[Rfam]
Nucleotides: 121
Stems, first nucleotide, its partner, number of pairs: 001121008013042001016041003022032003026092001028090002043084004048080002050076001088113001093110006
Number, partner (000 for none) and nucleotide at each position: 001121c002120u003119c004118u005117u006116a007115u008114c009000a010000a011000g012000a013042g014000u015000a016041g017040g018039u019000g020000g021000a022032g023031g024030g025000a026092c027000u028090g029089g030024c031023c032022c033000g034000a035000u036000g037000a038000u039018a040017c041016c042013c043084g044083g045082c046081a047000a048080c049079c050076g051000a052000c053000g054000u055000u056000u057000g058000g059000a060000u061000c062000c063000a064000a065000g066000a067000u068000c069000c070000g071000g072000a073000g074000c075000g076050c077000a078000c079049g080048g081046u082045g083044c084043u085000a086000a087000u088113u089029c090028u091000u092026g093110c094109g095108g096107a097106a098105a099000c100000g101000u102000a103000a104000a105098u106097u107096u108095c109094u110093g111000a112000g113088a114008g115007a116006u117005g118004a119003g120002a121001g
Shown here is a 121-nucleotide sequence from Paenibacillus swuensis, a member of the family "SAM riboswitch aptamer (S box leader)". Its Rfam clan is "SAM clan". Pairs were carried over by alignment from the consensus structure, which is taken from published work. The match comes from Rfam's covariance-model search (80 bits).